The family of this 68-nucleotide RNA from Sarcophilus harrisii is "Small nucleolar RNA U2-30". A reference for the family is Tycowski et al. (2004), "Guide RNAs with 5' Caps and Novel Box C/D snoRNA-like Domains for Modification of snRNAs in Metazoa", Curr Biol. The organism belongs to Sarcophilus, within Eukaryota. Rfam classes the family as a C/D-box small nucleolar RNA. The family has 21 seed sequences and 664 matches in Rfam 15.1.
[Rfam]
RNA sequence: GUGCAGUGAUGAAAACCUUUUCUGCUGACCUUUUAAUUGUGAAGGUUUCUACACUUGAACUGAGCUCA
Numbered sequence: 001g002u003g004c005a006g007u008g009a010u011g012a013a014a015a016c017c018u019u020u021u022c023u024g025c026u027g028a029c030c031u032u033u034u035a036a037u038u039g040u041g042a043a044g045g046u047u048u049c050u051a052c053a054c055u056u057g058a059a060c061u062g063a064g065c066u067c068a
Stems, first nucleotide, its partner, number of pairs: 001067001003065002013033003018028002